Overview
Shown here is a 98-nucleotide RNA sequence from Chitiniphilus eburneus, a member of the family "Bacterial small signal recognition particle RNA". Its family is annotated with signal recognition particle, plasma membrane targeting and SRP-dependent cotranslational protein targeting to membrane, signal sequence recognition in the Gene Ontology. The signal recognition particle (SRP) is a universally conserved ribonucleoprotein involved in the co-translational targeting of proteins to membranes. The base pairs follow the family's consensus structure, which is taken from published work. The organism belongs to Chitiniphilus, within Bacteria.
[Rfam]
RNA sequence: GGCGGGUCUCCCCGCAUGGCUAGAGGGUGAACCUGGUCAGGUCCGGAAGGAAGCAGCCACAGCUCUUGAUGCCAGUGCCGGGGGUUAGGCUCGCCACC
Numbered sequence: 001g002g003c004g005g006g007u008c009u010c011c012c013c014g015c016a017u018g019g020c021u022a023g024a025g026g027g028u029g030a031a032c033c034u035g036g037u038c039a040g041g042u043c044c045g046g047a048a049g050g051a052a053g054c055a056g057c058c059a060c061a062g063c064u065c066u067u068g069a070u071g072c073c074a075g076u077g078c079c080g081g082g083g084g085u086u087a088g089g090c091u092c093g094c095c096a097c098c
Base pairs, nucleotide, nucleotide: 004092005091006090007089008088009084010083011082012081013080014079015075017074018073019072020071023067024066025065026064027063028062034059035058036057037056042051043050044049
By type it is a non-coding RNA gene.